[Rfam]
RNA sequence: UCCUCCUCGCGUUCACUGCGUUUGCCAUAUGUGUACCUCUCAAUCAUAAGGCACGCGGUGAAUGCCAAGAGCG
Numbered sequence: 001u002c003c004u005c006c007u008c009g010c011g012u013u014c015a016c017u018g019c020g021u022u023u024g025c026c027a028u029a030u031g032u033g034u035a036c037c038u039c040u041c042a043a044u045c046a047u048a049a050g051g052c053a054c055g056c057g058g059u060g061a062a063u064g065c066c067a068a069g070a071g072c073g
Stems, first nucleotide, its partner, number of pairs: 003071003009065008018056003025051002028048004
Shown here is a 73-nucleotide RNA sequence from Danaus chrysippus, a member of the family "mir-124 microRNA precursor family". The literature on the family includes a 2003 paper in Genome Biol by Lai et al., "Computational identification of Drosophila microRNA genes". The source organism's lineage runs through Eukaryota, Pterygota, Neolepidoptera, Heteroneura and Anosia. Gene Ontology terms of the family: miRNA-mediated post-transcriptional gene silencing and RISC complex.